The family of this 95-nucleotide sequence from Varanus komodoensis is "Vault RNA". The base pairs follow the family's consensus structure, which is taken from published work. Rfam describes the family as follows. This family of RNAs are found as part of the enigmatic vault ribonucleoprotein complex. The complex consists of a major vault protein (MVP), two minor vault proteins (VPARP and TEP1), and several small untranslated RNA molecules. It has been suggested that the vault complex is involved in drug resistance.
[Rfam]
RNA sequence: GGGCCAGCUUAGCCUAGCGGUUCCUUCAGCAACGUAGCAUUGUUUCUACAACAACCGCUCUGGUUCGCGUCCCGCGGGCGCUGCCUGGCCUUUUG
Number, nucleotide and partner (000 for none) at each position: 001g000002g090003g089004c088005c087006a086007g085008c000009u000010u000011a000012g079013c078014c077015u076016a000017g075018c074019g073020g072021u000022u000023c000024c000025u069026u000027c067028a000029g065030c000031a000032a000033c000034g000035u000036a000037g000038c000039a000040u000041u000042g000043u000044u000045u000046c000047u000048a000049c000050a000051a000052c000053a000054a000055c000056c000057g000058c000059u000060c000061u000062g000063g000064u000065u029066c000067g027068c000069g025070u000071c000072c020073c019074g018075c017076g015077g014078g013079c012080g000081c000082u000083g000084c000085c007086u006087g005088g004089c003090c002091u000092u000093u000094u000095g000